[Rfam]
RNA: Bacterial antisense RNA HPnc0260
Organism: Bisgaardia hudsonensis
RNA sequence: UAUAUGAAAAUUUAGUUUAUUUAGUAUGAUACAAAAUGGCAUAAGCCGAAUGUUAAGUAAUAUUUUAAUUGUAUGUAAAAAAAGGGAUAUUGAGGUAAUUUAACAGUGUUUGAAAGGAUUAAAUGGUGCGACCGGGUGGACUCGAACCACUGACCCCCACCA
Numbered sequence: 001u002a003u004a005u006g007a008a009a010a011u012u013u014a015g016u017u018u019a020u021u022u023a024g025u026a027u028g029a030u031a032c033a034a035a036a037u038g039g040c041a042u043a044a045g046c047c048g049a050a051u052g053u054u055a056a057g058u059a060a061u062a063u064u065u066u067a068a069u070u071g072u073a074u075g076u077a078a079a080a081a082a083a084g085g086g087a088u089a090u091u092g093a094g095g096u097a098a099u100u101u102a103a104c105a106g107u108g109u110u111u112g113a114a115a116g117g118a119u120u121a122a123a124u125g126g127u128g129c130g131a132c133c134g135g136g137u138g139g140a141c142u143c144g145a146a147c148c149a150c151u152g153a154c155c156c157c158c159a160c161c162a
Stems, first nucleotide, its partner, number of pairs: 012056003017050002074089003124159003128155001133152002136150004